[Rfam]
RNA: ZMP/ZTP riboswitch aptamer (pfl RNA motif)
RNA sequence: CUGUAGGGUCGCGACUGGCGCAUGAGGUGGGCUCACCACCGGGGAGCGGAAGGGAGCGGAGGCCGUGCGCCUGGGUCUUCGCC
Numbered sequence: 001c002u003g004u005a006g007g008g009u010c011g012c013g014a015c016u017g018g019c020g021c022a023u024g025a026g027g028u029g030g031g032c033u034c035a036c037c038a039c040c041g042g043g044g045a046g047c048g049g050a051a052g053g054g055a056g057c058g059g060a061g062g063c064c065g066u067g068c069g070c071c072u073g074g075g076u077c078u079u080c081g082c083c
Base pairs, nucleotide, nucleotide: 004054009049010048011047012046015043016042017071018070019069020068021067027039028038029037030036060078061077062076063075064074